[Rfam]
RNA sequence: UUUGCUUUUGUGAAGACAGAAGCAGAAACUAUAGCCUAGGGGCUUCUGUUUGAUAUAUAGCAAC
Numbered sequence: 001u002u003u004g005c006u007u008u009u010g011u012g013a014a015g016a017c018a019g020a021a022g023c024a025g026a027a028a029c030u031a032u033a034g035c036c037u038a039g040g041g042g043c044u045u046c047u048g049u050u051u052g053a054u055a056u057a058u059a060g061c062a063a064c
Stems, first nucleotide, its partner, number of pairs: 002063004015050009029039003
Dot-bracket structure: .((((.........(((((((((.....(((.....)))..))))))))).........)))).
A member of the RNA family "Selenocysteine insertion sequence 1" from Varanus komodoensis, 64 nucleotides long. A search with the family's covariance model found it, with a score of 39 bits. Gene Ontology term of the family: selenocysteine incorporation. The family's consensus secondary structure is taken from published work.